Notes
A member of the RNA family "Bacterial RNase P class A" from Pseudaestuariivita atlantica, 395 nucleotides long. It scores 251 bits against the family's covariance model. The source organism's lineage runs through Bacteria, Pseudomonadati, Alphaproteobacteria, Paracoccaceae and Pseudaestuariivita. Its family is annotated with ribonuclease P activity, dimeric ribonuclease P complex and tRNA processing in the Gene Ontology.
[Rfam]
RNA sequence: GCGGAAGGCCGGGUGACCGCUUGCGCCGGUCCUUAGGGGCGGGCGCGGGAGGAAAGUCCGGACUCCCCGAAGCAACGGUGCCGGGUAACGCCCGGGCGGGGCAACCCGACGGACAGCGCCACAGAGAACAGACAGCCGCGCCCCGGCGUGGCAAUGGUGAAACGGUGGGGUAGUGGCCCACCGGGGGGCGGGCAACCGCCCUCGCAUGGCAAGCCCCACCGGGAGCAAUGCCGAAUAGGGACCGCGUCUGCCGCAAGGCAGGGGGUGGCUUUGGCCCCAGCAGGUCCGGGUUGGCAGCUAGAGGCCCCGUGGCAACACGGGGUCGAGAGGAAUGGUCACCGAACGCCGGGGCGACCCGGCGGGAACAGAAUCCGGCUUACAGGCCUUCCGCGCAC
Numbered sequence: 001g002c003g004g005a006a007g008g009c010c011g012g013g014u015g016a017c018c019g020c021u022u023g024c025g026c027c028g029g030u031c032c033u034u035a036g037g038g039g040c041g042g043g044c045g046c047g048g049g050a051g052g053a054a055a056g057u058c059c060g061g062a063c064u065c066c067c068c069g070a071a072g073c074a075a076c077g078g079u080g081c082c083g084g085g086u087a088a089c090g091c092c093c094g095g096g097c098g099g100g101g102c103a104a105c106c107c108g109a110c111g112g113a114c115a116g117c118g119c120c121a122c123a124g125a126g127a128a129c130a131g132a133c134a135g136c137c138g139c140g141c142c143c144c145g146g147c148g149u150g151g152c153a154a155u156g157g158u159g160a161a162a163c164g165g166u167g168g169g170g171u172a173g174u175g176g177c178c179c180a181c182c183g184g185g186g187g188g189c190g191g192g193c194a195a196c197c198g199c200c201c202u203c204g205c206a207u208g209g210c211a212a213g214c215c216c217c218a219c220c221g222g223g224a225g226c227a228a229u230g231c232c233g234a235a236u237a238g239g240g241a242c243c244g245c246g247u248c249u250g251c252c253g254c255a256a257g258g259c260a261g262g263g264g265g266u267g268g269c270u271u272u273g274g275c276c277c278c279a280g281c282a283g284g285u286c287c288g289g290g291u292u293g294g295c296a297g298c299u300a301g302a303g304g305c306c307c308c309g310u311g312g313c314a315a316c317a318c319g320g321g322g323u324c325g326a327g328a329g330g331a332a333u334g335g336u337c338a339c340c341g342a343a344c345g346c347c348g349g350g351g352c353g354a355c356c357c358g359g360c361g362g363g364a365a366c367a368g369a370a371u372c373c374g375g376c377u378u379a380c381a382g383g384c385c386u387u388c389c390g391c392g393c394a395c
Stems, first nucleotide, its partner, number of pairs: 001391010011380001012340007020049008054378003058375005063225004071271002076221005081095005096110001097108004111216002116214002118210003133156002135152007164182006183205001184203008229296004239287005262278005304323008